[Rfam]
RNA sequence: AUCGCAAGUUGGGAGUCAUAGCAGAUGCACUGAUGGCUCAGCCCUGUCAGAUUCCACCAAAUCUGCAAAUUCUGCU
Number, nucleotide and partner (000 for none) at each position: 001a000002u000003c000004g000005c000006a000007a000008g000009u000010u000011g000012g044013g043014a000015g042016u041017c000018a000019u000020a076021g075022c074023a073024g072025a071026u000027g039028c000029a000030c000031u000032g000033a000034u000035g000036g000037c000038u000039c027040a000041g016042c015043c013044c012045u000046g000047u000048c065049a064050g063051a062052u061053u060054c000055c000056a000057c000058c000059a000060a053061a052062u051063c050064u049065g048066c000067a000068a000069a000070u000071u025072c024073u023074g022075c021076u020
RNA: Mammalian CPEB3 ribozyme